[Rfam]
RNA sequence: UUAAUACUUCAGGGCAGGGUGCAAUUCCCGACCGGUGGUAAUCUGUGUAGGCAGUAGUCCACGACUCGCAUAGCGAUCGAUUUGGUGAGAUUCCAAGACCGACAGUAUAGUCUGGUAUGAAGAAGAAAAGG
Numbered sequence: 001u002u003a004a005u006a007c008u009u010c011a012g013g014g015c016a017g018g019g020u021g022c023a024a025u026u027c028c029c030g031a032c033c034g035g036u037g038g039u040a041a042u043c044u045g046u047g048u049a050g051g052c053a054g055u056a057g058u059c060c061a062c063g064a065c066u067c068g069c070a071u072a073g074c075g076a077u078c079g080a081u082u083u084g085g086u087g088a089g090a091u092u093c094c095a096a097g098a099c100c101g102a103c104a105g106u107a108u109a110g111u112c113u114g115g116u117a118u119g120a121a122g123a124a125g126a127a128a129a130g131g
Stems, first nucleotide, its partner, number of pairs: 005127001007125004017029003031111002033101002035062004057099002066076002081097005103114003

FMN riboswitch aptamer (RFN element): a 131-nucleotide RNA from Weissella oryzae. Taxonomically the source falls in Weissella oryzae (Bacteria, Bacillota, Lactobacillales, Lactobacillaceae). Rfam describes the family as follows. The RFN element is a highly conserved domain that is found frequently in the 5'-untranslated regions of prokaryotic mRNAs that encode for flavin mononucleotide (FMN) biosynthesis and transport proteins.